RNA sequence: GCGCUUUUCCUGUUAAGCAUUCGCGCCUAUAUUAGAUCUGUUCUUCGGAACUAUAACGAUAAACCCUUGUGUAAUAAACGGCUCGGACCCGGGGGCGGUACCCGGCGGCUCCACCAUAUUAACCAGCUCAUUUGGCUGUUGGAUUUGGGGCCGAAAUAGGAUCGACGGACGUGUAAAGACUUGUAUUUCGUUCGAAUGGGCCCCGUUAGAAGCCCAAUCGCAAAUAGUUGCAAAUGACAACUUUGCUGAAGGUGAGCUUCUCGCAGCGUAAGCUGUGCGAACAAACCGCAUAAACUCCUAGGGACUUUUAGCACUCUAGGCGGGGUUCGGAAGCACCUGGCAACAGAAGCUUCCACU
Numbered sequence: 001g002c003g004c005u006u007u008u009c010c011u012g013u014u015a016a017g018c019a020u021u022c023g024c025g026c027c028u029a030u031a032u033u034a035g036a037u038c039u040g041u042u043c044u045u046c047g048g049a050a051c052u053a054u055a056a057c058g059a060u061a062a063a064c065c066c067u068u069g070u071g072u073a074a075u076a077a078a079c080g081g082c083u084c085g086g087a088c089c090c091g092g093g094g095g096c097g098g099u100a101c102c103c104g105g106c107g108g109c110u111c112c113a114c115c116a117u118a119u120u121a122a123c124c125a126g127c128u129c130a131u132u133u134g135g136c137u138g139u140u141g142g143a144u145u146u147g148g149g150g151c152c153g154a155a156a157u158a159g160g161a162u163c164g165a166c167g168g169a170c171g172u173g174u175a176a177a178g179a180c181u182u183g184u185a186u187u188u189c190g191u192u193c194g195a196a197u198g199g200g201c202c203c204c205g206u207u208a209g210a211a212g213c214c215c216a217a218u219c220g221c222a223a224a225u226a227g228u229u230g231c232a233a234a235u236g237a238c239a240a241c242u243u244u245g246c247u248g249a250a251g252g253u254g255a256g257c258u259u260c261u262c263g264c265a266g267c268g269u270a271a272g273c274u275g276u277g278c279g280a281a282c283a284a285a286c287c288g289c290a291u292a293a294a295c296u297c298c299u300a301g302g303g304a305c306u307u308u309u310a311g312c313a314c315u316c317u318a319g320g321c322g323g324g325g326u327u328c329g330g331a332a333g334c335a336c337c338u339g340g341c342a343a344c345a346g347a348a349g350c351u352u353c354c355a356c357u
Stems, first nucleotide, its partner, number of pairs: 040051004055192005066183001069180002079171002083168003089105005106153007193205002199215002323338004329354006